[Rfam]
RNA sequence: UCGCCCCUGGCGAUAAAGUAGCCGCCUGUGGCUGCCUUCCUCAUCACGAGGAUAGCCAGAGGCGUUUUC
Numbered sequence: 001u002c003g004c005c006c007c008u009g010g011c012g013a014u015a016a017a018g019u020a021g022c023c024g025c026c027u028g029u030g031g032c033u034g035c036c037u038u039c040c041u042c043a044u045c046a047c048g049a050g051g052a053u054a055g056c057c058a059g060a061g062g063c064g065u066u067u068u069c
Base pairs, nucleotide, nucleotide: 002064003063004062005061007059008058009057010056011055018035019034020033021032022031023030038052039051040050041049042048

This 69-nucleotide sequence belongs to the Rfam family "DUF3800-IX RNA".
About the family: Actinobacteria, Firmicutes (1 example), Nitrospirae, Proteobacteria, Verrucomicrobia (1 example).
The family's consensus secondary structure is taken from published work.